Background
Shown here is an 82-nucleotide RNA sequence from Malus domestica, a member of the family "Small nucleolar RNA R160". Gene Ontology terms of the family: RNA processing and nucleolus. The pairing is the family consensus, mapped onto this sequence. The match comes from Rfam's covariance-model search (69 bits). On this family, see Chen et al., Nucleic Acids Res 2003: "The high diversity of snoRNAs in plants: identification and comparative study of 120 snoRNA genes from Oryza sativa". From the family's description: snoR160 is a C/D box small nucleolar RNA, which acts as a methylation guide for 25S ribosomal RNA in plants. snoR160 has been alternatively named snoZ270 in rice.
Nucleotides: 082
Base pairs, nucleotide, nucleotide: 001082002081003080004079005078
Number, partner (000 for none) and nucleotide at each position: 001082a002081g003080c004079a005078a006000a007000a008000u009000g010000a011000g012000g013000a014000g015000a016000u017000u018000u019000a020000u021000a022000u023000u024000g025000c026000u027000g028000a029000a030000u031000u032000u033000g034000a035000u036000g037000u038000g039000g040000a041000a042000c043000a044000a045000c046000c047000u048000c049000a050000u051000a052000c053000c054000a055000u056000a057000u058000u059000g060000g061000u062000c063000u064000u065000c066000a067000a068000a069000g070000u071000u072000c073000u074000c075000u076000g077000a078005u079004u080003g081002c082001u